[Rfam]
RNA sequence: AGUGAGGAUAGAGGUGCGAAAACCAUUAGUACGCUUUAGGAGGAUAAUGAGGUCCGGUGACUGCUGCGGAAAGGGGAAUUUGCCGAAACUUCAGAAAAGCUCAUUAUUUCUGAAGUUGGUUCUGUCAUUGAAAAAAUGCAGAAUUGUCAUAUAGGAAACUAUAUGGAGGGCUAUCUUACGC
Numbered sequence: 001a002g003u004g005a006g007g008a009u010a011g012a013g014g015u016g017c018g019a020a021a022a023c024c025a026u027u028a029g030u031a032c033g034c035u036u037u038a039g040g041a042g043g044a045u046a047a048u049g050a051g052g053u054c055c056g057g058u059g060a061c062u063g064c065u066g067c068g069g070a071a072a073g074g075g076g077a078a079u080u081u082g083c084c085g086a087a088a089c090u091u092c093a094g095a096a097a098a099g100c101u102c103a104u105u106a107u108u109u110c111u112g113a114a115g116u117u118g119g120u121u122c123u124g125u126c127a128u129u130g131a132a133a134a135a136a137u138g139c140a141g142a143a144u145u146g147u148c149a150u151a152u153a154g155g156a157a158a159c160u161a162u163a164u165g166g167a168g169g170g171c172u173a174u175c176u177u178a179c180g181c
Stems, first nucleotide, its partner, number of pairs: 006176006016083005023076002032068003037063003087117011118145007126138004147166007

Rfam assigns this 181-nucleotide RNA sequence from Mesobacillus foraminis to the family "Lysine riboswitch aptamer". Gene Ontology term of the family: lysine biosynthetic process. The organism belongs to Mesobacillus, within Bacteria. The match comes from Rfam's covariance-model search (123 bits). The base pairs follow the family's consensus structure, which is taken from published work.